The family of this 138-nucleotide sequence from Actinoplanes sp. TBRC 11911 is "c-di-AMP riboswitch aptamer (ydaO/yuaA leader)". The match comes from Rfam's covariance-model search (91 bits).
RNA sequence: GGCAGGCCACCGCCUAAUCGCCGCGAGGCGAGCCGGGGACCCAGGUUUUCCCGGGGUGAAUCCGCUGUUCCUAGCGGUAGGGAUCGCUUCCGUCCCGAACCCGUCAGCUAACCCGGUCGGCGGCCGACGGAAGGAUUG
Numbered sequence: 001g002g003c004a005g006g007c008c009a010c011c012g013c014c015u016a017a018u019c020g021c022c023g024c025g026a027g028g029c030g031a032g033c034c035g036g037g038g039a040c041c042c043a044g045g046u047u048u049u050c051c052c053g054g055g056g057u058g059a060a061u062c063c064g065c066u067g068u069u070c071c072u073a074g075c076g077g078u079a080g081g082g083a084u085c086g087c088u089u090c091c092g093u094c095c096c097g098a099a100c101c102c103g104u105c106a107g108c109u110a111a112c113c114c115g116g117u118c119g120g121c122g123g124c125c126g127a128c129g130g131a132a133g134g135a136u137u138g
Base pairs, nucleotide, nucleotide: 011122012121013120014119018031019030020029021028022027032117033116034115035114036113037112042053054102055101056100062077063076064075065074080096081095082094083093
This family represents a conserved RNA structure found upstream of the ydaO and yuaA genes in Bacillus subtilis and related genes in other bacteria. Lineage of the source: Bacteria > Bacillati > Actinomycetota > Actinomycetes > Actinoplanes.